[Rfam]
RNA sequence: UGGUAGAUGCACCCUGAUUCAUAACCUCCCGGACUCGUUCCAGGAGGUUUUUUAU
Dot-bracket structure: .(((......)))...........(((((.(((.....))).)))))........
Numbered sequence: 001u002g003g004u005a006g007a008u009g010c011a012c013c014c015u016g017a018u019u020c021a022u023a024a025c026c027u028c029c030c031g032g033a034c035u036c037g038u039u040c041c042a043g044g045a046g047g048u049u050u051u052u053u054a055u
Stems, first nucleotide, its partner, number of pairs: 002013003025047005031041003
This 55-nucleotide RNA from filamentous cyanobacterium CCP2 belongs to the Rfam family "Nitrogen stress-induced RNA 1". Rfam classes the family as a small RNA. It scores 50 bits against the family's covariance model. The base pairs follow the family's consensus structure.